[Rfam]
RNA: c-di-AMP riboswitch aptamer (ydaO/yuaA leader)
RNA sequence: AACUAAUUGCAGCCGAGUCCGGUACACUUUUUCCAAGUGCUGGUACGGGGGACGAUUUACUUGGGGUGAAUACUUGCCGCGUUGCGCGCGCAAGCUAGGGAGAACCUUCUUCCCGAACCCGUCAACUAACCUCGGAGGCUCAAGAAGGAGGAACC
Dot-bracket structure: ..........((((....(((((((...........)))))))..(((((..((.......))(((......(((((............)))))...((((.........))))...))).........)))))..))))...............